RNA sequence: AGCCUUCUGUAUCCCUGCUGAGAUUUCAUCACACACCAGACUACAAGGAUUGAUGAGACUCUCAAGAUAAGUGAGGCG
Numbered sequence: 001a002g003c004c005u006u007c008u009g010u011a012u013c014c015c016u017g018c019u020g021a022g023a024u025u026u027c028a029u030c031a032c033a034c035a036c037c038a039g040a041c042u043a044c045a046a047g048g049a050u051u052g053a054u055g056a057g058a059c060u061c062u063c064a065a066g067a068u069a070a071g072u073g074a075g076g077c078g
Stems, first nucleotide, its partner, number of pairs: 002077005008071001010069004016064002020061003024058007